[Rfam]
RNA sequence: GAGGCAUGAUGAGGAACCUCUUUUGCUUCUGAGAAUUUAUUCUCUGAGCGAUGUAAAACCUCCUACUCAUUCUGA
Numbered sequence: 001g002a003g004g005c006a007u008g009a010u011g012a013g014g015a016a017c018c019u020c021u022u023u024u025g026c027u028u029c030u031g032a033g034a035a036u037u038u039a040u041u042c043u044c045u046g047a048g049c050g051a052u053g054u055a056a057a058a059c060c061u062c063c064u065a066c067u068c069a070u071u072c073u074g075a
Stems, first nucleotide, its partner, number of pairs: 006070004030050001
The record is a 75-nucleotide RNA from Musa troglodytarum, which matches "Small nucleolar RNA Z105" in Rfam. It is annotated as a C/D-box small nucleolar RNA. It scores 51 bits against the family's covariance model. On this family, see Chen et al., Nucleic Acids Res 2003: "The high diversity of snoRNAs in plants: identification and comparative study of 120 snoRNA genes from Oryza sativa". Pairs were carried over by alignment from the consensus structure, which was predicted with CMfinder.